[Rfam]
RNA: Small nucleolar RNA snR191
RNA sequence: UGCCAUUGCUAAGUCAGGACUUCUUCCAGCGACAAUUAUUUGUCGCGCUUUCGCACAAUGGAGGCUUGUCUGUUACAGCUUUGGCAGAUCGACACUGGUCCGCGCCGAAUCUCUUUCUGAGGCUAGGCUGAUUGGCUUUCGUUUUGAAAGCUGGUUGUUAAGGACCAGGUAGUGCUUUGUUUUUGAGUUGAGAUCUGCUUCUGCCUUUCUUUGGCGGUUUACCGUAGCAGAUCUCUUAGUAACAUCUCACACAUUC
Numbered sequence: 001u002g003c004c005a006u007u008g009c010u011a012a013g014u015c016a017g018g019a020c021u022u023c024u025u026c027c028a029g030c031g032a033c034a035a036u037u038a039u040u041u042g043u044c045g046c047g048c049u050u051u052c053g054c055a056c057a058a059u060g061g062a063g064g065c066u067u068g069u070c071u072g073u074u075a076c077a078g079c080u081u082u083g084g085c086a087g088a089u090c091g092a093c094a095c096u097g098g099u100c101c102g103c104g105c106c107g108a109a110u111c112u113c114u115u116u117c118u119g120a121g122g123c124u125a126g127g128c129u130g131a132u133u134g135g136c137u138u139u140c141g142u143u144u145u146g147a148a149a150g151c152u153g154g155u156u157g158u159u160a161a162g163g164a165c166c167a168g169g170u171a172g173u174g175c176u177u178u179g180u181u182u183u184u185g186a187g188u189u190g191a192g193a194u195c196u197g198c199u200u201c202u203g204c205c206u207u208u209c210u211u212u213g214g215c216g217g218u219u220u221a222c223c224g225u226a227g228c229a230g231a232u233c234u235c236u237u238a239g240u241a242a243c244a245u246c247u248c249a250c251a252c253a254u255u256c
Stems, first nucleotide, its partner, number of pairs: 003084003017071004023064005030045005095168006104128003108124001110122004135151007172250003178244003190235004196229004201217005